[Rfam]
RNA sequence: AAAAAGGGCUUCUGCUGUGCGUGGCACGGGGGGGCCCCGCGGCCGCUCCCGCGGAAUCGACAUCAAGAGAUUUCGGAAGCACAAUUUUUGCAAUGGGGGUCGCCGGUAACCGCCUGUUCCGGCGCCCCG
Dot-bracket structure: .......((((((((((....)))))((((((.(.((...)).).))))))(((((((..........))))))))))))................((((.(((((.(((.....))))))))))))..

Source information: U11 spliceosomal RNA: a 129-nucleotide sequence from Grus americana. Taxonomically the source falls in Grus (Eukaryota, Euteleostomi, Archosauria, Gruidae). A search with the family's covariance model found it, with a score of 104 bits. The family is grouped with related families in Rfam's "U1 clan". For this family Rfam cites "Additional low-abundance human small nuclear ribonucleoproteins: U11, U12, etc" (Montzka and Steitz, Proc Natl Acad Sci U S A, 1988). The base pairs follow the family's consensus structure, which is taken from published work.